[Rfam]
RNA sequence: CGGUAGGUGAACUCCCAGGUGGCGUCCGGGUCGGUGAAGGGCCGGUCGCCGAGGUGGUCGCCGCCGGCCAGCGCGCCGAGCACGGUCUCGUCGCCGUACUUGCCGGUGCCGAUCCGGUCCACCCUGCCGUGCGCGACGAGCACGACGCGGUCGGCCGGGCCGCCCGCCUCGGCGAUCACGUCGCCCGCCGCGUACUGCCGGCGCUCGAACCGGUCGGCGAGCGCCGUGAGUACCUCACUGUCGGUGUAAUUGCGCAGCGCGGGCAACUCGCGCAGCUCGUCCGGGAUGACGCGCAACUCACCGCCGUCCGCGGCGAAGUCGAUGUGUCCGUCCCCGACGGCAUAGGUCAAGCGGCGGUUGACACGGUACGUGCCACCGGAGACCUCCACCCAGGGCAGCAGGCGCAGCAGCCAGCGAGAGCUGAUGUUCUGCAUCUGCGGUACGGUCUUGGUGGUGGUCGCGAGAUUGCGCGCUGCGGUAGUGGCCAGACUGGUCGGGCCCGAAUUUU
Numbered sequence: 001c002g003g004u005a006g007g008u009g010a011a012c013u014c015c016c017a018g019g020u021g022g023c024g025u026c027c028g029g030g031u032c033g034g035u036g037a038a039g040g041g042c043c044g045g046u047c048g049c050c051g052a053g054g055u056g057g058u059c060g061c062c063g064c065c066g067g068c069c070a071g072c073g074c075g076c077c078g079a080g081c082a083c084g085g086u087c088u089c090g091u092c093g094c095c096g097u098a099c100u101u102g103c104c105g106g107u108g109c110c111g112a113u114c115c116g117g118u119c120c121a122c123c124c125u126g127c128c129g130u131g132c133g134c135g136a137c138g139a140g141c142a143c144g145a146c147g148c149g150g151u152c153g154g155c156c157g158g159g160c161c162g163c164c165c166g167c168c169u170c171g172g173c174g175a176u177c178a179c180g181u182c183g184c185c186c187g188c189c190g191c192g193u194a195c196u197g198c199c200g201g202c203g204c205u206c207g208a209a210c211c212g213g214u215c216g217g218c219g220a221g222c223g224c225c226g227u228g229a230g231u232a233c234c235u236c237a238c239u240g241u242c243g244g245u246g247u248a249a250u251u252g253c254g255c256a257g258c259g260c261g262g263g264c265a266a267c268u269c270g271c272g273c274a275g276c277u278c279g280u281c282c283g284g285g286a287u288g289a290c291g292c293g294c295a296a297c298u299c300a301c302c303g304c305c306g307u308c309c310g311c312g313g314c315g316a317a318g319u320c321g322a323u324g325u326g327u328c329c330g331u332c333c334c335c336g337a338c339g340g341c342a343u344a345g346g347u348c349a350a351g352c353g354g355c356g357g358u359u360g361a362c363a364c365g366g367u368a369c370g371u372g373c374c375a376c377c378g379g380a381g382a383c384c385u386c387c388a389c390c391c392a393g394g395g396c397a398g399c400a401g402g403c404g405c406a407g408c409a410g411c412c413a414g415c416g417a418g419a420g421c422u423g424a425u426g427u428u429c430u431g432c433a434u435c436u437g438c439g440g441u442a443c444g445g446u447c448u449u450g451g452u453g454g455u456g457g458u459c460g461c462g463a464g465a466u467u468g469c470g471c472g473c474u475g476c477g478g479u480a481g482u483g484g485c486c487a488g489a490c491u492g493g494u495c496g497g498g499c500c501c502g503a504a505u506u507u508u
Stems, first nucleotide, its partner, number of pairs: 006390004011385001015381001018328002021325001025322002028319001031316002035313001039309004045305001047303002051299002054233002058229004063224002065111004075103001077102004082097005117222002120219001122217002127212001129210002131206001133204003138199001144195001150191001154189001156187005162177001165174003235295001240290004245285001252280003256277003259271003330341003352378003356374002361371002391431007399423003403418001405416001407415001437476004443470002448464002451461002480506003484499003488495001

Saccharopolyspora sRNA 350: a 508-nucleotide sequence from Streptomyces sp. Ru73. It is annotated as an antisense RNA. It scores 187 bits against the family's covariance model. Pairs were carried over by alignment from the consensus structure, which was predicted with RNAfold. The literature on the family includes a 2013 paper in PLoS One by Liu et al., "Prediction and characterization of small non-coding RNAs related to secondary metabolites in Saccharopolyspora erythraea". Rfam links the family to the GO term regulation of secondary metabolite biosynthetic process.